[Rfam]
RNA sequence: AUAUUUCAAGGGAGGAAUGAUGCUCAAAGUGAAACCCCAAGAAAAGGAUCCUGAGUCCCAGGUCUGUGAUGGAGCUGCUCUCUUUCUGACCUUCCUUGACUUGAA
Numbered sequence: 001a002u003a004u005u006u007c008a009a010g011g012g013a014g015g016a017a018u019g020a021u022g023c024u025c026a027a028a029g030u031g032a033a034a035c036c037c038c039a040a041g042a043a044a045a046g047g048a049u050c051c052u053g054a055g056u057c058c059c060a061g062g063u064c065u066g067u068g069a070u071g072g073a074g075c076u077g078c079u080c081u082c083u084u085u086c087u088g089a090c091c092u093u094c095c096u097u098g099a100c101u102u103g104a105a
Stems, first nucleotide, its partner, number of pairs: 009096007
RNA: Small nucleolar RNA SNORD124
Organism: Vombatus ursinus